[Rfam]
RNA: Small nucleolar RNA snoR145
Organism: Solanum pimpinellifolium
RNA sequence: AUGCGAAGGUACCCAGCGGAGAGGGUAAAAACUCUUGAACGAGACCUCUCUAACACUAUAAACAAUACCUUCGCAGAUUUAACAUUUGCCGAAUCGUAGGAAGCUCCAUAUUUUCCAUUAUGGUGCUUCUUGAACCCUUGGCUAAAUUUGU
Number, nucleotide and partner (000 for none) at each position: 001a000002u000003g074004c073005g072006a071007a070008g069009g068010u000011a000012c021013c000014c019015a000016g000017c000018g000019g014020a000021g012022a000023g050024g049025g048026u000027a000028a000029a000030a000031a000032c043033u042034c041035u000036u000037g000038a000039a000040c000041g034042a033043g032044a000045c000046c000047u000048c025049u024050c023051u000052a000053a000054c000055a000056c000057u000058a000059u000060a000061a000062a000063c000064a000065a000066u000067a000068c009069c008070u007071u006072c005073g004074c003075a000076g000077a000078u000079u000080u000081a000082a000083c000084a000085u000086u000087u000088g142089c141090c140091g139092a138093a000094u000095c000096g000097u000098a000099g000100g129101a128102a000103g126104c125105u000106c123107c122108a121109u120110a119111u000112u000113u000114u000115c000116c000117a000118u000119u110120a109121u108122g107123g106124u000125g104126c103127u000128u101129c100130u000131u000132g000133a000134a000135c000136c000137c000138u092139u091140g090141g089142c088143u000144a000145a000146a000147u000148u000149u000150g000151u000